[Rfam]
RNA: permuted transfer-messenger RNA
RNA sequence: GGUGAUAAACGGACGAUGUAAUAAACCUAUUGGACCCGGGGGCGGUACCCGGCGCCUCCACCACAAUGCAGCUUGCAUAUCCAUGCUGCCUUGUGGCGGGGGCGAAAUAGGAUCGACAAGGGUGUAAAGAUCGCUCUUUUGCUCGGCAUGAUACCACCGUUAUCGGGUCAAAAGUGUAGUUGCAAACGACAACAACGCUAAGGGAUAUGCUGUAGCUGCCUAA
Numbered sequence: 001g002g003u004g005a006u007a008a009a010c011g012g013a014c015g016a017u018g019u020a021a022u023a024a025a026c027c028u029a030u031u032g033g034a035c036c037c038g039g040g041g042g043c044g045g046u047a048c049c050c051g052g053c054g055c056c057u058c059c060a061c062c063a064c065a066a067u068g069c070a071g072c073u074u075g076c077a078u079a080u081c082c083a084u085g086c087u088g089c090c091u092u093g094u095g096g097c098g099g100g101g102g103c104g105a106a107a108u109a110g111g112a113u114c115g116a117c118a119a120g121g122g123u124g125u126a127a128a129g130a131u132c133g134c135u136c137u138u139u140u141g142c143u144c145g146g147c148a149u150g151a152u153a154c155c156a157c158c159g160u161u162a163u164c165g166g167g168u169c170a171a172a173a174g175u176g177u178a179g180u181u182g183c184a185a186a187c188g189a190c191a192a193c194a195a196c197g198c199u200a201a202g203g204g205a206u207a208u209g210c211u212g213u214a215g216c217u218g219c220c221u222a223a
Base pairs, nucleotide, nucleotide: 001143002142003141004140005139014133015132016131017130026122027121028120030119031118032117036052037051038050039049040048053104054103055102056101057100058099059098144159145158146157